[Rfam]
Nucleotides: 120
Stems, first nucleotide, its partner, number of pairs: 003038006015030005043073002046070005052063003078113008
Number, partner (000 for none) and nucleotide at each position: 001000u002000g003038c004037c005036c006035u007034u008033u009000u010000a011000a012000u013000u014000g015030c016029a017028g018027u019026c020000c021000c022000g023000u024000g025000a026019g027018g028017c029016u030015g031000a032000c033008a034007a035006a036005g037004g038003g039000g040000a041000a042000a043073a044072g045000a046070g047069c048068c049067g050066u051000a052063g053062a054061u055000c056000c057000u058000a059000u060000c061054a062053u063052u064000a065000a066050g067049c068048g069047g070046c071000a072044u073043u074000u075000u076000c077000u078113a079112a080111a081110c082109c083108c084107u085106c086000u087000u088000u089000g090000u091000g092000c093000c094000u095000u096000a097000a098000c099000g100000g101000a102000c103000g104000c105000u106085g107084a108083g109082g110081g111080u112079u113078u114000u115000u116000u117000u118000u119000u120000u